[Rfam]
RNA sequence: GGCUGGCCCGAUGGUAGUGUGUUAUCAGAACUUAUUAACAUUAGUGUCACUAAAGUUGGUAUACAGCCCCUAUUGCUAAAUUUGACUGGCUUAUA
Numbered sequence: 001g002g003c004u005g006g007c008c009c010g011a012u013g014g015u016a017g018u019g020u021g022u023u024a025u026c027a028g029a030a031c032u033u034a035u036u037a038a039c040a041u042u043a044g045u046g047u048c049a050c051u052a053a054a055g056u057u058g059g060u061a062u063a064c065a066g067c068c069c070c071u072a073u074u075g076c077u078a079a080a081u082u083u084g085a086c087u088g089g090c091u092u093a094u095a
Stems, first nucleotide, its partner, number of pairs: 001091006008084001010083002015078001016074004021069001033061003037057002
RNA: Y RNA